[Rfam]
The record is a 96-nucleotide RNA from Paspalum vaginatum, which matches "Small nucleolar RNA Z152/R70/R12/" in Rfam. A search with the family's covariance model found it, with a score of 68 bits. Lineage of the source: Eukaryota > Viridiplantae > Spermatophyta > Panicoideae > Paspalum. On this family, see Barneche et al., J Mol Biol 2001: "Identification of 66 box C/D snoRNAs in Arabidopsis thaliana: extensive gene duplications generated multiple isoforms predicting new ribosomal RNA 2'-O-methylation sites". The base pairs follow the family's consensus structure, which was predicted with PFOLD.
RNA sequence: AAUGCGAUGAUGAAUUCAAAAGGUUUAGGCAGUGGUGGCCUCUUGGCCGCCGUGAGCCGUCAAACCGAAAAACGACUUCUCUUUCCACUGAGCAUU
Numbered sequence: 001a002a003u004g005c006g007a008u009g010a011u012g013a014a015u016u017c018a019a020a021a022g023g024u025u026u027a028g029g030c031a032g033u034g035g036u037g038g039c040c041u042c043u044u045g046g047c048c049g050c051c052g053u054g055a056g057c058c059g060u061c062a063a064a065c066c067g068a069a070a071a072a073c074g075a076c077u078u079c080u081c082u083u084u085c086c087a088c089u090g091a092g093c094a095u096u
Base pairs, nucleotide, nucleotide: 001096002095003094004093005092